RNA sequence: UACAGGCGAGCGGUGAGUCCGUUACAGGUUGUUCGGGGUGUUCCCAUCCAUCGGUUGGCAAAAGCUUCGACGCAAAAAGCCUGUGAGGCACGCUCGUUUU
Numbered sequence: 001u002a003c004a005g006g007c008g009a010g011c012g013g014u015g016a017g018u019c020c021g022u023u024a025c026a027g028g029u030u031g032u033u034c035g036g037g038g039u040g041u042u043c044c045c046a047u048c049c050a051u052c053g054g055u056u057g058g059c060a061a062a063a064g065c066u067u068c069g070a071c072g073c074a075a076a077a078a079g080c081c082u083g084u085g086a087g088g089c090a091c092g093c094u095c096g097u098u099u100u
Stems, first nucleotide, its partner, number of pairs: 002099001004097001006095001010093002025083005030077001032076001033070007044058003048054002
Source information:
The record is a 100-nucleotide RNA sequence from Smithella sp. ME-1, which matches "DUF3800-V RNA" in Rfam. The family's consensus secondary structure is taken from published work. The organism belongs to Smithella, within Bacteria.